[Rfam]
RNA sequence: CAACUCUGGAAAGUUUUGCGUACUGCGAGACACCGACGGAGUAAGCAAAAGGUGAUAAACAUCUUUUGUGAAUCUCUCAGGUUCGAAGACAGAGGGGGAUG
Dot-bracket structure: (..(((((......(((..........))).(((((..(((...((((((((((.....))))))))))....))))).))).......)))))..)....
Numbered sequence: 001c002a003a004c005u006c007u008g009g010a011a012a013g014u015u016u017u018g019c020g021u022a023c024u025g026c027g028a029g030a031c032a033c034c035g036a037c038g039g040a041g042u043a044a045g046c047a048a049a050a051g052g053u054g055a056u057a058a059a060c061a062u063c064u065u066u067u068g069u070g071a072a073u074c075u076c077u078c079a080g081g082u083u084c085g086a087a088g089a090c091a092g093a094g095g096g097g098g099a100u101g
Stems, first nucleotide, its partner, number of pairs: 001097001004094005015030003032082003035078002039076003045069010